[Rfam]
RNA sequence: GGAAAGCUUGGGUGGACGAACACCUUGUGAACUCGGUCAGGUCCGGAAGGAAGCAGCCAUCACGAGUAUCGUUUGGGUCAUUCAAGCUUUCCUUG
Number, nucleotide and partner (000 for none) at each position: 001g000002g000003a000004a089005a088006g087007c086008u085009u084010g083011g082012g081013u080014g079015g000016a000017c075018g074019a073020a072021c071022a000023c000024c066025u065026u064027g063028u062029g061030a000031a000032c000033u000034c000035g058036g057037u056038c000039a000040g000041g000042u051043c050044c049045g000046g000047a000048a000049g044050g043051a042052a000053g000054c000055a000056g037057c036058c035059a000060u000061c029062a028063c027064g026065a025066g024067u000068a000069u000070c000071g021072u020073u019074u018075g017076g000077g000078u000079c014080a013081u012082u011083c010084a009085a008086g007087c006088u005089u004090u000091c000092c000093u000094u000095g000